Shown here is a 110-nucleotide RNA sequence from Nesterenkonia alkaliphila, a member of the family "Glycine riboswitch aptamer".
Its family is annotated with glycine biosynthetic process in the Gene Ontology.
This family represents the bacterial glycine riboswitch.
It scores 60 bits against the family's covariance model.
The source organism's lineage runs through Bacteria, Actinomycetes, Micrococcales, Micrococcaceae and Nesterenkonia.
[Rfam]
RNA sequence: GUCCCUGGUGCGGGAGAGUCCGCACGGCUUGUGCCGUGCGGCGCCGAAGGAGCAAGGAGUCCCCUCCGAAUCUCUCAGGCCAGCUCACACUGAUGGACCGCAGCGGGGUG
Numbered sequence: 001g002u003c004c005c006u007g008g009u010g011c012g013g014g015a016g017a018g019u020c021c022g023c024a025c026g027g028c029u030u031g032u033g034c035c036g037u038g039c040g041g042c043g044c045c046g047a048a049g050g051a052g053c054a055a056g057g058a059g060u061c062c063c064c065u066c067c068g069a070a071u072c073u074c075u076c077a078g079g080c081c082a083g084c085u086c087a088c089a090c091u092g093a094u095g096g097a098c099c100g101c102a103g104c105g106g107g108g109u110g
Stems, first nucleotide, its partner, number of pairs: 006105002009102005020041009043080003046076002050074003056067002